Source information
This 85-nucleotide sequence from Listeria grayi belongs to the Rfam family "pan motif". The source organism's lineage runs through Bacteria, Bacillota, Bacilli, Caryophanales and Listeria grayi. It is annotated as a cis-regulatory element.
[Rfam]
RNA sequence: CGGAUGUGACCAGAUUUGGCAUAUACAGCACGCCUUUUUUAAAAAAAUUUUGCCUUGAUCGGCAACUGCCGGCAGGGACGAAUAG
Numbered sequence: 001c002g003g004a005u006g007u008g009a010c011c012a013g014a015u016u017u018g019g020c021a022u023a024u025a026c027a028g029c030a031c032g033c034c035u036u037u038u039u040u041a042a043a044a045a046a047a048u049u050u051u052g053c054c055u056u057g058a059u060c061g062g063c064a065a066c067u068g069c070c071g072g073c074a075g076g077g078a079c080g081a082a083u084a085g
Stems, first nucleotide, its partner, number of pairs: 001028001003026001004024005010019002050081003053077005059072005